[Rfam]
About this RNA
A member of the RNA family "Small nucleolar RNA SNORA63" from Catagonus wagneri, 130 nucleotides long. It scores 132 bits against the family's covariance model. The base pairs follow the family's consensus structure, which was predicted with PFOLD. Rfam links the family to the GO terms nucleolus and RNA processing. It is annotated as an H/ACA-box small nucleolar RNA. E3 belongs to the H/ACA class of snoRNAs and is involved in the processing of eukaryotic pre-rRNA and has regions of complementarity to 18S rRNA. E3 is encoded in introns in the gene for protein synthesis initiation factor 4AII.
RNA sequence: AAGCAGGACUUAGACUACAAUAUAGCUGUCAGGUGCUGUGUUGUCAUUUCCCCUGCUCAAAAUAAAGUUGUUUCUUAACUCUACCUGUCUGCUAUACUCUUAGCAGCCAGGGAUGCUUGGUCUCAUACAU
Dot-bracket structure: ..(((((.........((((((((((........)))))))))).......)))))...........................((((.((((..........)))).))))...................
Numbered sequence: 001a002a003g004c005a006g007g008a009c010u011u012a013g014a015c016u017a018c019a020a021u022a023u024a025g026c027u028g029u030c031a032g033g034u035g036c037u038g039u040g041u042u043g044u045c046a047u048u049u050c051c052c053c054u055g056c057u058c059a060a061a062a063u064a065a066a067g068u069u070g071u072u073u074c075u076u077a078a079c080u081c082u083a084c085c086u087g088u089c090u091g092c093u094a095u096a097c098u099c100u101u102a103g104c105a106g107c108c109a110g111g112g113a114u115g116c117u118u119g120g121u122c123u124c125a126u127a128c129a130u
Stems, first nucleotide, its partner, number of pairs: 003056005017044010084111004089106004